Shown here is a 313-nucleotide RNA from Spizellomyces punctatus, a member of the family "Group I catalytic intron". Its family is annotated with Group I intron splicing in the Gene Ontology. Lineage of the source: Eukaryota > Fungi > Spizellomycetales > Spizellomycetaceae > Spizellomyces punctatus. A search with the family's covariance model found it, with a score of 109 bits. Group I catalytic introns are large self-splicing ribozymes.

RNA sequence: ACAAGGGGCUAAAUGUGCUCCCGAAAGGAAUGCGCAAGUCUUCAGUGGCACCGAAGGCAACACUGUCAAAUUGCGGGGAAGCCCUAAAGCUUUGUCUACCAAGCAGGGAUGGAAACAUUUCUGUGGCCAGGGUAAUGACCUCGGGUAUGGUAAAACGGCAAAGAUAGAACAAUGGGUAAUCCGCAGCCAAGUCCUAAACUUGCACCCAGCUGGGGCAAGCAUGGAUGCAGUUCACAGACUAAAUGGCAGUGGCUCUGCGAUAGAGAUUAUUGCGGGGCUUAAGAUAUAGUCGGACCCACCGCGAGAGCGGUUC
Numbered sequence: 001a002c003a004a005g006g007g008g009c010u011a012a013a014u015g016u017g018c019u020c021c022c023g024a025a026a027g028g029a030a031u032g033c034g035c036a037a038g039u040c041u042u043c044a045g046u047g048g049c050a051c052c053g054a055a056g057g058c059a060a061c062a063c064u065g066u067c068a069a070a071u072u073g074c075g076g077g078g079a080a081g082c083c084c085u086a087a088a089g090c091u092u093u094g095u096c097u098a099c100c101a102a103g104c105a106g107g108g109a110u111g112g113a114a115a116c117a118u119u120u121c122u123g124u125g126g127c128c129a130g131g132g133u134a135a136u137g138a139c140c141u142c143g144g145g146u147a148u149g150g151u152a153a154a155a156c157g158g159c160a161a162a163g164a165u166a167g168a169a170c171a172a173u174g175g176g177u178a179a180u181c182c183g184c185a186g187c188c189a190a191g192u193c194c195u196a197a198a199c200u201u202g203c204a205c206c207c208a209g210c211u212g213g214g215g216c217a218a219g220c221a222u223g224g225a226u227g228c229a230g231u232u233c234a235c236a237g238a239c240u241a242a243a244u245g246g247c248a249g250u251g252g253c254u255c256u257g258c259g260a261u262a263g264a265g266a267u268u269a270u271u272g273c274g275g276g277g278c279u280u281a282a283g284a285u286a287u288a289g290u291c292g293g294a295c296c297c298a299c300c301g302c303g304a305g306a307g308c309g310g311u312u313c
Stems, first nucleotide, its partner, number of pairs: 001016002061251005067245002072185006082176003186231002191226004199219005235292001237291005253277009298311005